[Rfam]
RNA sequence: CGCCGAAUCCUGCCCCUGGCCGACGAUUUCUCGAACCGGGCGGCAGGAACGGGGGACCCAUCUCCGAGUAUCGAAAGGAUUCGAUGCUCUCGGGGUGAAGCCAUGUGCGACGACCACCCGGAAAGGUAUUUCCGGUGCGGCUUCCGUCUCCAGGGAUCCCUGGCACGGCCGGGCAGUUCCCAGCCCGAAUCCGACAGCUCACCUCGCAGGCGU
Number, nucleotide and partner (000 for none) at each position: 001c212002g211003c210004c209005g000006a000007a000008u048009c047010c046011u045012g044013c043014c042015c000016c000017u000018g000019g000020c000021c000022g000023a000024c000025g000026a000027u000028u000029u000030c000031u000032c000033g000034a000035a000036c000037c000038g000039g000040g000041c000042g014043g013044c012045a011046g010047g009048a008049a000050c206051g205052g204053g203054g202055g000056a000057c000058c000059c092060a000061u000062c000063u000064c000065c000066g000067a000068g000069u000070a000071u000072c000073g000074a000075a000076a000077g000078g000079a000080u000081u000082c000083g000084a000085u000086g000087c000088u000089c000090u000091c000092g059093g192094g191095g190096u000097g000098a000099a000100g000101c168102c167103a000104u165105g164106u163107g000108c000109g000110a000111c000112g000113a000114c000115c000116a000117c000118c000119c000120g000121g000122a000123a000124a000125g000126g000127u000128a000129u000130u000131u000132c000133c000134g000135g000136u000137g000138c000139g000140g000141c000142u000143u000144c000145c000146g000147u000148c000149u000150c000151c000152a000153g000154g000155g000156a000157u000158c000159c000160c000161u000162g000163g106164c105165a104166c000167g102168g101169c000170c000171g186172g185173g184174c183175a000176g000177u000178u000179c000180c000181c000182a000183g174184c173185c172186c171187g000188a000189a000190u095191c094192c093193g000194a000195c000196a000197g000198c000199u000200c000201a000202c054203c053204u052205c051206g050207c000208a000209g004210g003211c002212g001213u000
This 213-nucleotide RNA sequence from Frankia casuarinae belongs to the Rfam family "c-di-AMP riboswitch aptamer (ydaO/yuaA leader)".
The family has 106 seed sequences and 7,607 matches in Rfam 15.1.
The match comes from Rfam's covariance-model search (51 bits).
NCBI's taxonomy places the organism under Bacteria, Actinomycetota, Actinomycetes, Frankiales, Frankia.